[Rfam]
The record is a 70-nucleotide RNA from Phocoena sinus, which matches "Small nucleolar RNA SNORD77" in Rfam. Gene Ontology terms of the family: RNA processing and nucleolus. U77 belongs to the C/D family of snoRNAs. It is predicted to guide 2'O-ribose methylation of large 28S rRNA subunit at position A1521. It is annotated as a C/D-box small nucleolar RNA.
Nucleotides: 070
Stems, first nucleotide, its partner, number of pairs: 001068001003066002006038005013028003043057003
Number, partner (000 for none) and nucleotide at each position: 001068a002000c003066a004065c005000u006038a007037u008036g009035a010034u011000g012000g013028u014027u015026g016000c017000g018000u019000a020000g021000u022000u023000c024000a025000a026015c027014a028013g029000a030000c031000u032000g033000a034010a035009u036008c037007a038006u039000g040000a041000a042000a043057a044056a045055g046000a047000u048000a049000a050000u051000a052000c053000c054000a055045u056044u057043u058000g059000u060000c061000u062000g063000a064000u065004g066003u067000a068001u069000c070000u